Rfam assigns this 102-nucleotide RNA from Planococcus sp. PAMC 21323 to the family "Purine riboswitch aptamer". Pairs were carried over by alignment from the consensus structure, which is taken from published work. Taxonomically the source falls in Planococcus (Bacteria, Bacillati, Caryophanales, Caryophanaceae).

RNA sequence: GACCAUUCAAAUAGAUUCACUCAUAUAAUAGCGGAAAUAGGGUCCGCGAGUUUCUACCGGUUUGCCGUAAACAAACUGACUAUGAGAAGCAACGAAGCAGAG
Numbered sequence: 001g002a003c004c005a006u007u008c009a010a011a012u013a014g015a016u017u018c019a020c021u022c023a024u025a026u027a028a029u030a031g032c033g034g035a036a037a038u039a040g041g042g043u044c045c046g047c048g049a050g051u052u053u054c055u056a057c058c059g060g061u062u063u064g065c066c067g068u069a070a071a072c073a074a075a076c077u078g079a080c081u082a083u084g085a086g087a088a089g090c091a092a093c094g095a096a097g098c099a100g101a102g
Stems, first nucleotide, its partner, number of pairs: 020086006029049001031047005058078007